[Rfam]
RNA sequence: AGAGGUCACAAGUUUGAGGCCAAAGAAGUGCUCAUGAUAUGGCCUGCCAGAUUCCAAUGAAUCUGGGAAUUCUGCU
Numbered sequence: 001a002g003a004g005g006u007c008a009c010a011a012g013u014u015u016g017a018g019g020c021c022a023a024a025g026a027a028g029u030g031c032u033c034a035u036g037a038u039a040u041g042g043c044c045u046g047c048c049a050g051a052u053u054c055c056a057a058u059g060a061a062u063c064u065g066g067g068a069a070u071u072c073u074g075c076u
Stems, first nucleotide, its partner, number of pairs: 018044004024076001025072003028040003048065007
RNA: Mammalian CPEB3 ribozyme
Organism: Crocodylus porosus